[Rfam]
RNA sequence: UCCUGCAUUUGAAAGUGAUCAUGGGCUGCUAAUGCCCUGGUCAUUGAUAGUGCAGGGAGAGGAAUGGCUGGAAGACAUUGUCCCCAUGUUUGGAGGGUCUACCCAUCCCUUCCAAACCCUGUAGCUUUCCCACA
Numbered sequence: 001u002c003c004u005g006c007a008u009u010u011g012a013a014a015g016u017g018a019u020c021a022u023g024g025g026c027u028g029c030u031a032a033u034g035c036c037c038u039g040g041u042c043a044u045u046g047a048u049a050g051u052g053c054a055g056g057g058a059g060a061g062g063a064a065u066g067g068c069u070g071g072a073a074g075a076c077a078u079u080g081u082c083c084c085c086a087u088g089u090u091u092g093g094a095g096g097g098u099c100u101a102c103c104c105a106u107c108c109c110u111u112c113c114a115a116a117c118c119c120u121g122u123a124g125c126u127u128u129c130c131c132a133c134a
Base pairs, nucleotide, nucleotide: 001057002056003055004054005053006052007051008050009049014045015044016043017042018041019040020039021038023037024036025035026034067131070129071128072127073126074125088117089116090115091114092113093111094110095109096108097107

This 134-nucleotide RNA sequence from Spermophilus dauricus belongs to the Rfam family "Small nucleolar RNA SNORA71".
The family's RNA type in Rfam is H/ACA-box small nucleolar RNA.
For this family Rfam cites "The family of box ACA small nucleolar RNAs is defined by an evolutionarily conserved secondary structure and ubiquitous sequence elements essential for RNA accumulation" (Ganot et al., Genes Dev, 1997).
Rfam links the family to the GO terms nucleolus and RNA processing.
The family's consensus secondary structure was predicted with PFOLD.
Lineage of the source: Eukaryota > Gnathostomata > Teleostomi > Marmotini > Spermophilus.
About the family: The members of this family belong to the H/ACA class of snoRNAs which bind a number of proteins (including dyskerin, Gar1p and Nop10p) to form snoRNP complexes. This class of snoRNAs are thought to guide the sites of modification of uridines to pseudouridines by forming direct base pairing interactions with substrate RNAs. This family includes U71 (SNORA71), ACA39 (SNORA39) and ACA60 (SNORA60). U71 and ACA60 are predicted to guide the pseudouridylation of U406 and U1004 in 18S rRNA respectively.